[Rfam]
Source information: The family of this 79-nucleotide sequence from Spodoptera littoralis is "mir-2767 microRNA precursor family".
RNA sequence: CUUACUGUUGACACAAGUAAAUCUCGUGCGGCUUGUGUGGAUAUCAAGCCGUUCGAGAUUUACUUAAGUCAAUGGUAAA
Numbered sequence: 001c002u003u004a005c006u007g008u009u010g011a012c013a014c015a016a017g018u019a020a021a022u023c024u025c026g027u028g029c030g031g032c033u034u035g036u037g038u039g040g041a042u043a044u045c046a047a048g049c050c051g052u053u054c055g056a057g058a059u060u061u062a063c064u065u066a067a068g069u070c071a072a073u074g075g076u077a078a079a
Stems, first nucleotide, its partner, number of pairs: 005075008015065012028052008

Its family is annotated with RISC complex and miRNA-mediated post-transcriptional gene silencing in the Gene Ontology.